[Rfam]
RNA sequence: AUAAAAGAUAGAGGCUGCGGUGCAGAUGAGUACCUUUUGAAGGAGGCAUCCAUUGAAGAAAGGGAAAGGCAAUCACCGCCGAAAUGUGGAUUUUGGCAAAAAUUCAUAUUGGGCUGCAGGGAAAGACUUUGCAGACUCCUUCAGUCGAAGAGGUGUUAUCUUGAAA
Numbered sequence: 001a002u003a004a005a006a007g008a009u010a011g012a013g014g015c016u017g018c019g020g021u022g023c024a025g026a027u028g029a030g031u032a033c034c035u036u037u038u039g040a041a042g043g044a045g046g047c048a049u050c051c052a053u054u055g056a057a058g059a060a061a062g063g064g065a066a067a068g069g070c071a072a073u074c075a076c077c078g079c080c081g082a083a084a085u086g087u088g089g090a091u092u093u094u095g096g097c098a099a100a101a102a103u104u105c106a107u108a109u110u111g112g113g114c115u116g117c118a119g120g121g122a123a124a125g126a127c128u129u130u131g132c133a134g135a136c137u138c139c140u141u142c143a144g145u146c147g148a149a150g151a152g153g154u155g156u157u158a159u160c161u162u163g164a165a166a
Stems, first nucleotide, its partner, number of pairs: 006161006017079006025070001033063006083110012111137002114134008139150004